[Rfam]
RNA: Small nucleolar RNA snoR26
RNA sequence: GGAGUAUCGGUGAUGAUUCCAAGAACAAAAUUGUUAUCCUUGCACUUUGAUUGCUAGUGAAGAAAAAUAUGGGGUGUGCAAUUCUGAGAUGCUU
Numbered sequence: 001g002g003a004g005u006a007u008c009g010g011u012g013a014u015g016a017u018u019c020c021a022a023g024a025a026c027a028a029a030a031u032u033g034u035u036a037u038c039c040u041u042g043c044a045c046u047u048u049g050a051u052u053g054c055u056a057g058u059g060a061a062g063a064a065a066a067a068u069a070u071g072g073g074g075u076g077u078g079c080a081a082u083u084c085u086g087a088g089a090u091g092c093u094u
Stems, first nucleotide, its partner, number of pairs: 002094007